chrB-a RNA: an 83-nucleotide RNA.
Rfam classes the family as a cis-regulatory element.
RNA sequence: GUCAAGGGGCCCACCGCGAUUGCCCCGUGAGGCUUCGGCUGAAUAUCGCGUCCAAGUCCGUUUCUGAGCUGGACGCCGCCAUG
Dot-bracket structure: .....(((((...........))))).....................((((((.................)))))).......